[Rfam]
RNA sequence: UCGUUAAGAAAUGACAUGACAAACGAAGUGUCACGUUAUCAUGUCUUGUCACGGAUAUCUCAUUGUUAUGUCAUCACCUUCAAUGAUGUGACAAUAACGUGUUAGUGACAAUACAUGAUAACGUGACAUUCUGUCUGUCACGUCAUUACUUAUUGGAA
Numbered sequence: 001u002c003g004u005u006a007a008g009a010a011a012u013g014a015c016a017u018g019a020c021a022a023a024c025g026a027a028g029u030g031u032c033a034c035g036u037u038a039u040c041a042u043g044u045c046u047u048g049u050c051a052c053g054g055a056u057a058u059c060u061c062a063u064u065g066u067u068a069u070g071u072c073a074u075c076a077c078c079u080u081c082a083a084u085g086a087u088g089u090g091a092c093a094a095u096a097a098c099g100u101g102u103u104a105g106u107g108a109c110a111a112u113a114c115a116u117g118a119u120a121a122c123g124u125g126a127c128a129u130u131c132u133g134u135c136u137g138u139c140a141c142g143u144c145a146u147u148a149c150u151u152a153u154u155g156g157a158a
Stems, first nucleotide, its partner, number of pairs: 001156003005152004010147006017140005023134003027130018046111001048109005054103005070087005
A member of the RNA family "MIR4371 microRNA precursor family" from Glycine max, 158 nucleotides long. A search with the family's covariance model found it, with a score of 133 bits. Rfam 15.1 lists 321 matches to the family in 4 species. Its family is annotated with miRNA-mediated post-transcriptional gene silencing and RISC complex in the Gene Ontology. Its Rfam clan is "MIR4387 microRNA precursor clan".